[Rfam]
RNA sequence: AAAAAAAACCGGGGCCCUCUUUCGAGAGCCCCUUUUCAUGGGAGAGGAGAAACCGGACGAAGAGCUUAUGGGGAAACGUAAGUCUUCUCCGCGG
Numbered sequence: 001a002a003a004a005a006a007a008a009c010c011g012g013g014g015c016c017c018u019c020u021u022u023c024g025a026g027a028g029c030c031c032c033u034u035u036u037c038a039u040g041g042g043a044g045a046g047g048a049g050a051a052a053c054c055g056g057a058c059g060a061a062g063a064g065c066u067u068a069u070g071g072g073g074a075a076a077c078g079u080a081a082g083u084c085u086u087c088u089c090c091g092c093g094g
Stems, first nucleotide, its partner, number of pairs: 011032005017026003033042003054091004059087004064083005